[Rfam]
RNA sequence: ACGAUGGCAACGUACUUCUUUGCAUCGCCAUACAGAAUGUUAAAAGCUAUGGAAUGUAAAGAAGUAUGUAGUCCGUGA
Numbered sequence: 001a002c003g004a005u006g007g008c009a010a011c012g013u014a015c016u017u018c019u020u021u022g023c024a025u026c027g028c029c030a031u032a033c034a035g036a037a038u039g040u041u042a043a044a045a046g047c048u049a050u051g052g053a054a055u056g057u058a059a060a061g062a063a064g065u066a067u068g069u070a071g072u073c074c075g076u077g078a
Stems, first nucleotide, its partner, number of pairs: 007072002010069016028052005
RNA: mir-1 microRNA precursor family
Organism: Cercopithifilaria johnstoni